[Rfam]
RNA sequence: UGAUAACCGUUCCUCUUGCUGCCACGAACCAUGGGCAGUGGGAUUUUGUGUCAUCGCAGAUUACACUUGGCCUUUCUUCACUCAGGGUGCUCUUGGAUGGGUUUGGCUGUCCGUUAGCACCUUCUGCGGGGUCAGAAUACU
Numbered sequence: 001u002g003a004u005a006a007c008c009g010u011u012c013c014u015c016u017u018g019c020u021g022c023c024a025c026g027a028a029c030c031a032u033g034g035g036c037a038g039u040g041g042g043a044u045u046u047u048g049u050g051u052c053a054u055c056g057c058a059g060a061u062u063a064c065a066c067u068u069g070g071c072c073u074u075u076c077u078u079c080a081c082u083c084a085g086g087g088u089g090c091u092c093u094u095g096g097a098u099g100g101g102u103u104u105g106g107c108u109g110u111c112c113g114u115u116a117g118c119a120c121c122u123u124c125u126g127c128g129g130g131g132u133c134a135g136a137a138u139a140c141u
Stems, first nucleotide, its partner, number of pairs: 001056004006051002014043005020037004069133006084123008095112005
A member of the RNA family "Small nucleolar RNA SNORA79" from Gopherus evgoodei, 141 nucleotides long. The base pairs follow the family's consensus structure, which was predicted with RNAalifold. Gene Ontology terms of the family: nucleolus and RNA processing. From the family's description: ACA65 (SNORA79) is a member of the H/ACA class of snoRNAs that guide the sites of modification of uridines to pseudouridines. This snoRNA was identified by computational screening and its expression in mouse experimentally verified by Northern blot and primer extension analysis. Lineage of the source: Eukaryota > Euteleostomi > Sarcopterygii > Archelosauria > Gopherus. The match comes from Rfam's covariance-model search (75 bits). A reference for the family is Schattner et al. (2006), "A computational screen for mammalian pseudouridylation guide H/ACA RNAs", RNA. Rfam classes the family as an H/ACA-box small nucleolar RNA.